[Rfam]
RNA sequence: UGGGUCGAUGGCGGCCACUGGUGGCAUAUGAGUCACGUACGAGGAAUGUGUGUCUGGAACUCUGAGGUCCGA
Dot-bracket structure: .(((((...........................................................)))))..
Overview: Small nucleolar RNA SNORD113/SNORD114 family: a 72-nucleotide RNA from Neogale vison. On this family, see Cavaille et al., Hum Mol Genet 2002: "Identification of tandemly-repeated C/D snoRNA genes at the imprinted human 14q32 domain reminiscent of those at the Prader-Willi/Angelman syndrome region". Gene Ontology terms of the family: RNA processing and nucleolus. Pairs were carried over by alignment from the consensus structure, which is taken from published work. The imprinted human domain at 14q32 contains two clusters of tandemly repeated small nucleolar RNAs named 14q(I) and 14q(II) snoRNAs. These two clusters are named SNORD113 and SNORD114 respectively in the HGNC approved gene symbol nomenclature. The snoRNAs found in both clusters are clearly related and are represented here by a single family.